[Rfam]
RNA sequence: CAAGCUAAAGCCAAACCUGUUGAGAAGCAGGGACGGAAAGCCACGGGUCUUACGAAGACAGCCGGGUUGCCAAGG
Number, nucleotide and partner (000 for none) at each position: 001c075002a000003a000004g071005c000006u000007a000008a000009a000010g000011c036012c035013a000014a000015a000016c031017c030018u029019g028020u027021u026022g000023a000024g000025a000026a021027g020028c019029a018030g017031g016032g000033a000034c061035g012036g011037a000038a000039a068040g067041c066042c065043a000044c064045g063046g062047g059048u058049c057050u000051u000052a000053c000054g000055a000056a000057g049058a048059c047060a000061g034062c046063c045064g044065g042066g041067u040068u039069g000070c000071c004072a000073a000074g000075g001